[Rfam]
RNA sequence: UUGCAUCCACUGAUAGACCUGAAGCAAGAUUCAGUAGCUUCUGGGUUUGCACAGAGAUGCUAGAGUGAGCAUUUCCUGAGCUCUCUGACUGCUUUAUACUGUAGCAGCACAGAUUCAGUUAAGGUGCACAUGU
Dot-bracket structure: ..(((((...((.((((((..((((.(.......).))))...))))))))....))))).............((.((.....((((.(((((.........)))))..))))......)).)).........
Numbered sequence: 001u002u003g004c005a006u007c008c009a010c011u012g013a014u015a016g017a018c019c020u021g022a023a024g025c026a027a028g029a030u031u032c033a034g035u036a037g038c039u040u041c042u043g044g045g046u047u048u049g050c051a052c053a054g055a056g057a058u059g060c061u062a063g064a065g066u067g068a069g070c071a072u073u074u075c076c077u078g079a080g081c082u083c084u085c086u087g088a089c090u091g092c093u094u095u096a097u098a099c100u101g102u103a104g105c106a107g108c109a110c111a112g113a114u115u116c117a118g119u120u121a122a123g124g125u126g127c128a129c130a131u132g133u
Stems, first nucleotide, its partner, number of pairs: 003060005011051002014049006022040004027035001074124002077121002084113004089107005

The family of this 133-nucleotide sequence from Salarias fasciatus is "Small nucleolar RNA SNORA31".
Rfam describes the family as follows. ACA31 (SNORA31) belongs to the H/ACA class of snoRNAs which are thought to guide the sites of modification of uridines to pseudouridines. ACA31 is predicted to guide the pseudouridylation of U3713 in 28S rRNA and U218 in 18S rRNA. This family includes the mouse homologue snoMBI-161.
The organism belongs to Salarias, within Eukaryota.